[Rfam]
RNA sequence: UGAGUGGACCAGACGGUCGCGCGAUGUGCUGUUUGCAGUACGCGUGAGGAAAGUCCGGGCUCCAGAGGGCGGGAUGCCGGCUAACGGCCGGGCGGAGUGAUCCGACGGAAAGCGCCGCAGAAAAGAAGACUCCCACCUGCGCCGCAAGGCGUAAAGGGAAAAGCUGAAACGGUGGUGUAAGAGACCACCAGCGUCGUGGCAACACGGCGGCUUGGCAAGCCCCAUCCGGAGCAAGCGCGAAUAGGAACGCUAUGGGCCGGCCCGGUCCGCGUUCGGGUAGCGUGCGUGGAGCUGCACGGUAACGUGCAGACAAGAUAAAUGACCGUUCACGACAGAACCCGGCUUAUAGGCCCACUCAGCAC
Dot-bracket structure: (((((((.((((((((((.((((.(((((........)))))))))....[[[.[[[[[((((...[[[[.((((((((((.....)))))(((((....)))).)((...(((((.............((.((...((((((....))))))...))...)).......((((((.......)))))).((((((((....))))))).)..)))..)))))))))))))...((((......((((((...(((((.]]]]))))))))))).....))))........(((((((....)))))))...........)))))))..........]]]]]]]].).)).)))))))....
Numbered sequence: 001u002g003a004g005u006g007g008a009c010c011a012g013a014c015g016g017u018c019g020c021g022c023g024a025u026g027u028g029c030u031g032u033u034u035g036c037a038g039u040a041c042g043c044g045u046g047a048g049g050a051a052a053g054u055c056c057g058g059g060c061u062c063c064a065g066a067g068g069g070c071g072g073g074a075u076g077c078c079g080g081c082u083a084a085c086g087g088c089c090g091g092g093c094g095g096a097g098u099g100a101u102c103c104g105a106c107g108g109a110a111a112g113c114g115c116c117g118c119a120g121a122a123a124a125g126a127a128g129a130c131u132c133c134c135a136c137c138u139g140c141g142c143c144g145c146a147a148g149g150c151g152u153a154a155a156g157g158g159a160a161a162a163g164c165u166g167a168a169a170c171g172g173u174g175g176u177g178u179a180a181g182a183g184a185c186c187a188c189c190a191g192c193g194u195c196g197u198g199g200c201a202a203c204a205c206g207g208c209g210g211c212u213u214g215g216c217a218a219g220c221c222c223c224a225u226c227c228g229g230a231g232c233a234a235g236c237g238c239g240a241a242u243a244g245g246a247a248c249g250c251u252a253u254g255g256g257c258c259g260g261c262c263c264g265g266u267c268c269g270c271g272u273u274c275g276g277g278u279a280g281c282g283u284g285c286g287u288g289g290a291g292c293u294g295c296a297c298g299g300u301a302a303c304g305u306g307c308a309g310a311c312a313a314g315a316u317a318a319a320u321g322a323c324c325g326u327u328c329a330c331g332a333c334a335g336a337a338c339c340c341g342g343c344u345u346a347u348a349g350g351c352c353c354a355c356u357c358a359g360c361a362c
Stems, first nucleotide, its partner, number of pairs: 001358007009350002011347001012327007020046004025042005051345003055342005060231004067263004072227005077091005092106001093104004107222002112220002114216003130163002133158002138153006171189006191211001192209007235283004245274006254268005292309007